[Rfam]
RNA sequence: UUUCAGCGCACUGACUCGCAGCGGCCCGUUCGCCCGGUCCCGGCCGUAGGCGGACAGCAGGGCCUGCGCCUC
Number, nucleotide and partner (000 for none) at each position: 001u000002u000003u000004c000005a000006g000007c000008g000009c000010a000011c000012u000013g000014a000015c000016u024017c023018g000019c000020a000021g000022c000023g017024g016025c000026c000027c000028g000029u000030u000031c068032g067033c066034c000035c062036g000037g000038u000039c000040c057041c000042g055043g000044c053045c052046g051047u000048a000049g000050g000051c046052g045053g044054a000055c042056a000057g040058c000059a000060g000061g000062g035063c000064c000065u000066g033067c032068g031069c000070c000071u000072c000

Rfam assigns this 72-nucleotide RNA from a Streptomycetaceae bacterium to the family "ASpks TB sRNA". The family's consensus secondary structure is taken from published work. The match comes from Rfam's covariance-model search (52 bits). Rfam classes the family as an antisense RNA. The source organism's lineage runs through Bacteria, Bacillati, Actinomycetes, Kitasatosporales and Streptomycetaceae.